[Rfam]
The record is a 45-nucleotide RNA sequence, which matches "Acido-Lenti-1 RNA" in Rfam. A search with the family's covariance model found it, with a score of 47 bits. By type it is a small RNA. The family has 87 seed sequences and 2,607 matches in Rfam 15.1.

RNA sequence: CCUAGGCCUUCGGCCUAGGCUAUUUUACGGCGGGCCUUUGGCCCU
Numbered sequence: 001c002c003u004a005g006g007c008c009u010u011c012g013g014c015c016u017a018g019g020c021u022a023u024u025u026u027a028c029g030g031c032g033g034g035c036c037u038u039u040g041g042c043c044c045u
Stems, first nucleotide, its partner, number of pairs: 001019008032044005